[Rfam]
Nucleotides: 115
Stems, first nucleotide, its partner, number of pairs: 001015005016041006023034004046114001048091004053086001054080002057077002061073004096111006
Number, partner (000 for none) and nucleotide at each position: 001015g002014a003013g004012g005011a006000u007000a008000g009000g010000c011005u012004c013003c014002u015001c016041g017040a018039a019038g020037u021036c022000g023034a024033c025032u026031u027000c028000c029000g030000g031026g032025g033024g034023u035000a036021g037020g038019c039018u040017u041016c042000a043000a044000a045000c046114c047000a048091c049090c050089u051088u052000a053086a054080g055079c056000g057077g058076c059000g060000u061073u062072g063071g064070u065000g066000a067000a068000g069000a070064g071063c072062c073061a074000a075000g076058g077057u078000c079055g080054u081000g082000a083000g084000c085000g086053u087000c088051a089050a090049g091048g092000a093000a094000a095000a096111g097110g098109c099108g100107c101106u102000g103000c104000a105000a106101a107100g108099c109098g110097u111096c112000a113000g114046g115000u